Shown here is a 79-nucleotide RNA sequence from Ziziphus jujuba, a member of the family "Small nucleolar RNA R21". The literature on the family includes a 2001 paper in J Mol Biol by Barneche et al., "Identification of 66 box C/D snoRNAs in Arabidopsis thaliana: extensive gene duplications generated multiple isoforms predicting new ribosomal RNA 2'-O-methylation sites". The match comes from Rfam's covariance-model search (70 bits). The organism belongs to Ziziphus jujuba, within Eukaryota. Rfam classes the family as a C/D-box small nucleolar RNA. Pairs were carried over by alignment from the consensus structure, which was predicted with PFOLD.
[Rfam]
RNA sequence: AAUCCCAAUGAAGAUUGCUGUUUGCAAUUAAAAAGUAGUGGACUGACCUCCAUUGAUGACAAACCAAUUCUGAGGGAUU
Numbered sequence: 001a002a003u004c005c006c007a008a009u010g011a012a013g014a015u016u017g018c019u020g021u022u023u024g025c026a027a028u029u030a031a032a033a034a035g036u037a038g039u040g041g042a043c044u045g046a047c048c049u050c051c052a053u054u055g056a057u058g059a060c061a062a063a064c065c066a067a068u069u070c071u072g073a074g075g076g077a078u079u
Base pairs, nucleotide, nucleotide: 001079002078003077004076005075006074